Selenocysteine insertion sequence 1: a 63-nucleotide RNA sequence from Erpetoichthys calabaricus. About the family: The incorporation of selenocysteine into a protein sequence is directed by an in-frame UGA codon (usually a stop codon) within the coding region of the mRNA. Selenoprotein mRNAs contain a conserved secondary structure in the 3' UTR that is required for the distinction of UGA stop from UGA selenocysteine. The selenocysteine insertion sequence (SECIS) is around 60 nt in length and adopts a hairpin structure which is sufficiently well-defined and conserved to act as a computational screen for selenoprotein genes. The match comes from Rfam's covariance-model search (38 bits). By type it is a cis-regulatory element. NCBI's taxonomy places the organism under Eukaryota, Chordata, Euteleostomi, Polypteriformes, Erpetoichthys.
RNA sequence: GUUUGCAUCAUGAAGGGGAUGGGGGAAAGCCCUUGGGACCCCCAUCCCCGGAAGAGUCGAAAC
Numbered sequence: 001g002u003u004u005g006c007a008u009c010a011u012g013a014a015g016g017g018g019a020u021g022g023g024g025g026a027a028a029g030c031c032c033u034u035g036g037g038a039c040c041c042c043c044a045u046c047c048c049c050g051g052a053a054g055a056g057u058c059g060a061a062a063c
Stems, first nucleotide, its partner, number of pairs: 001063004015049010030037002
Dot-bracket structure: ((((..........((((((((((.....((....))..))))))))))..........))))